[Rfam]
The family of this 70-nucleotide sequence from Perca flavescens is "mir-8/mir-141/mir-200 microRNA precursor family". Rfam 15.1 lists 2,669 matches to the family in 883 species.
RNA sequence: GGAUCCAUCUUACCUUACAGUGCUGGAUUGUACAACUGUUGUUCUAACACUGUCUGGUAACGAUGUUUCC
Numbered sequence: 001g002g003a004u005c006c007a008u009c010u011u012a013c014c015u016u017a018c019a020g021u022g023c024u025g026g027a028u029u030g031u032a033c034a035a036c037u038g039u040u041g042u043u044c045u046a047a048c049a050c051u052g053u054c055u056g057g058u059a060a061c062g063a064u065g066u067u068u069c070c
Base pairs, nucleotide, nucleotide: 002069003068006065007064008063009062010060011059012058013057014056017053018052019051020050021049022048024046025045026044027043

It scores 63 bits against the family's covariance model.